The family of this 72-nucleotide RNA sequence from Trachymyrmex cornetzi is "HDV ribozyme from F. prausnitzii". The family's consensus secondary structure is taken from published work. Rfam links the family to the GO term catalytic activity. It scores 46 bits against the family's covariance model.
RNA sequence: GAUUCUCAAAAUCGUCCACCUCCUCGCGGUGAGAAUCAGGAAACUUUGAAAUAUUCAAAGACAAAUUCGUAA
Numbered sequence: 001g002a003u004u005c006u007c008a009a010a011a012u013c014g015u016c017c018a019c020c021u022c023c024u025c026g027c028g029g030u031g032a033g034a035a036u037c038a039g040g041a042a043a044c045u046u047u048g049a050a051a052u053a054u055u056c057a058a059a060g061a062c063a064a065a066u067u068c069g070u071a072a
Stems, first nucleotide, its partner, number of pairs: 001037007018030003044060005
Taxonomically the source falls in Trachymyrmex (Eukaryota, Mandibulata, Pancrustacea, Allotriocarida).